[Rfam]
RNA: Actino-pnp RNA
RNA sequence: AACGGUCCUCGGUAGUGGCUGCCGGAGCCUAAGGGUUCCGACAGCUUCGAUCGAAGGCCGUC
Number, nucleotide and partner (000 for none) at each position: 001a000002a061003c060004g059005g058006u057007c056008c000009u054010c053011g052012g051013u050014a000015g000016u000017g046018g045019c044020u043021g042022c000023c040024g039025g038026a037027g036028c035029c034030u000031a000032a000033g000034g029035g028036u027037u026038c025039c024040g023041a000042c021043a020044g019045c018046u017047u000048c000049g000050a013051u012052c011053g010054a009055a000056g007057g006058c005059c004060g003061u002062c000